This 84-nucleotide RNA from Thiorhodococcus minor belongs to the Rfam family "t44 RNA".
[Rfam]
RNA sequence: GUCACCUUGUCCACACACGUGUCGACACAUACGGCUGGGUGCCCGCUCGCGCGGGUUGUCGUGUGGGGCAUGUGGAGGCCUAAC
Numbered sequence: 001g002u003c004a005c006c007u008u009g010u011c012c013a014c015a016c017a018c019g020u021g022u023c024g025a026c027a028c029a030u031a032c033g034g035c036u037g038g039g040u041g042c043c044c045g046c047u048c049g050c051g052c053g054g055g056u057u058g059u060c061g062u063g064u065g066g067g068g069c070a071u072g073u074g075g076a077g078g079c080c081u082a083a084c
Stems, first nucleotide, its partner, number of pairs: 016074008028065008041056005
A search with the family's covariance model found it, with a score of 66 bits. About the family: This family consists of a number of bacterial RNA genes of between 135 and 170 bases in length. The t44 gene has been identified in several species of enteric bacteria but homologs have also been identified in Pseudomonas and Coxiella species. The t44 gene is found between the map and rpsB genes in all species in the full alignment apart from Shigella flexneri. The function of this RNA is unknown.